[Rfam]
RNA sequence: UGAAAACCGCCAUGAGCGGUGUUGUUCCCCAGCCAGGGGCAACUUUUCCAUAUUCGGAGUUG
Number, nucleotide and partner (000 for none) at each position: 001u000002g000003a000004a000005a000006a000007c000008c000009g000010c000011c000012a000013u000014g000015a000016g000017c000018g046019g045020u000021g043022u042023u041024g040025u039026u038027c037028c036029c000030c000031a000032g000033c000034c000035a000036g028037g027038g026039g025040c024041a023042a022043c021044u000045u019046u018047u000048c000049c000050a000051u000052a000053u000054u000055c000056g000057g000058a000059g000060u000061u000062g000